[Rfam]
RNA: Trypanosomatid snoRNA TB6Cs1H4
Organism: Trypanosoma conorhini
RNA sequence: GUCUCCGAAUUACAGGUCCCUUGGCGGCUGCAUCCUUCGAUGCCGCUCCACAGGGUACCUAUUGGGGGCAGA
Numbered sequence: 001g002u003c004u005c006c007g008a009a010u011u012a013c014a015g016g017u018c019c020c021u022u023g024g025c026g027g028c029u030g031c032a033u034c035c036u037u038c039g040a041u042g043c044c045g046c047u048c049c050a051c052a053g054g055g056u057a058c059c060u061a062u063u064g065g066g067g068g069c070a071g072a
Base pairs, nucleotide, nucleotide: 002068003067004066005065006064007063016056017055018054019053024046025045026044027043028042